The record is a 53-nucleotide RNA from Dendrobium nobile, which matches "Plastid-psbl-rps4 3UTR RNA" in Rfam.
Plastid psbl-rps4-psbC is a non-coding RNA (ncRNA) present in plastids. It is compose of two short stem-loops in tandem in the terminal 3 prime untranslate region (3UTR) mostly in psbl and rps4 seed plants genes.
Taxonomically the source falls in Dendrobium (Eukaryota, Embryophyta, Euphyllophyta, Epidendroideae).
The literature on the family includes a 2023 paper in Plant Commun by Richter et al., "Retrograde signaling in plants: A critical review focusing on the GUN pathway and beyond".
RNA sequence: CGGAGAGAGAGGGAUUCGAACCCUCGGUACGAAUAAUUCGUACAAUAUAUGUG
Numbered sequence: 001c002g003g004a005g006a007g008a009g010a011g012g013g014a015u016u017c018g019a020a021c022c023c024u025c026g027g028u029a030c031g032a033a034u035a036a037u038u039c040g041u042a043c044a045a046u047a048u049a050u051g052u053g
Stems, first nucleotide, its partner, number of pairs: 009025005027043006